[Rfam]
Shown here is a 50-nucleotide RNA sequence from Oceanibaculum pacificum, a member of the family "Guanidine-II riboswitch aptamer (mini-ykkC)".
RNA sequence: GUGCCGGGACGACCCGGCAGCCUUCAUCCUGAUCGAAGGGGACGACCCCU
Numbered sequence: 001g002u003g004c005c006g007g008g009a010c011g012a013c014c015c016g017g018c019a020g021c022c023u024u025c026a027u028c029c030u031g032a033u034c035g036a037a038g039g040g041g042a043c044g045a046c047c048c049c050u
Stems, first nucleotide, its partner, number of pairs: 002019007037050005